[Rfam]
RNase MRP: a 300-nucleotide RNA from Frieseomelitta varia. A search with the family's covariance model found it, with a score of 106 bits. NCBI's taxonomy places the organism under Eukaryota, Bilateria, Protostomia, Meliponini, Frieseomelitta. It is annotated as a ribozyme. The base pairs follow the family's consensus structure, which is taken from published work.
RNA sequence: CAGUUCCCUCGAGUAACGUGACGGAGCCACAAUCGGAGUUCUCAGUGACUCUCUCAUGCUCUGAGGAAAGUCCCUGGACCGUGGACAGAAAGUGUCGUAGCAUCAACCGCUGCUAGCCUCUUGUCAUCUUUCUCGAACUUUUAAGACAGGAAGCUUCGGCGGAUCUUUCGAGUUAGGACAAGGGCGUAUUGGUCAAAGAAAAGUAAUGCGUUUUUCGGAUUGUAAUUCUCAAUUUCCAAUCCCUCUGAGGAGUGGAAUUUGAGAAUUGUCCAACUAAACAGGGCUUACUUCGCGGGAAAG
Numbered sequence: 001c002a003g004u005u006c007c008c009u010c011g012a013g014u015a016a017c018g019u020g021a022c023g024g025a026g027c028c029a030c031a032a033u034c035g036g037a038g039u040u041c042u043c044a045g046u047g048a049c050u051c052u053c054u055c056a057u058g059c060u061c062u063g064a065g066g067a068a069a070g071u072c073c074c075u076g077g078a079c080c081g082u083g084g085a086c087a088g089a090a091a092g093u094g095u096c097g098u099a100g101c102a103u104c105a106a107c108c109g110c111u112g113c114u115a116g117c118c119u120c121u122u123g124u125c126a127u128c129u130u131u132c133u134c135g136a137a138c139u140u141u142u143a144a145g146a147c148a149g150g151a152a153g154c155u156u157c158g159g160c161g162g163a164u165c166u167u168u169c170g171a172g173u174u175a176g177g178a179c180a181a182g183g184g185c186g187u188a189u190u191g192g193u194c195a196a197a198g199a200a201a202a203g204u205a206a207u208g209c210g211u212u213u214u215u216c217g218g219a220u221u222g223u224a225a226u227u228c229u230c231a232a233u234u235u236c237c238a239a240u241c242c243c244u245c246u247g248a249g250g251a252g253u254g255g256a257a258u259u260u261g262a263g264a265a266u267u268g269u270c271c272a273a274c275u276a277a278a279c280a281g282g283g284c285u286u287a288c289u290u291c292g293c294g295g296g297a298a299a300g
Base pairs, nucleotide, nucleotide: 004298005297006296007295008294010292011291015212016211017210018209019208022063023062024061025060026059027058036051037050038049039048040047068286069285070284072283073282074281075280084096085095086094087093097113098112099111100110101109116185117184118183122180123179124178125177127175132172133171134170143167144166145165146164153160154159218270219269220268222266223265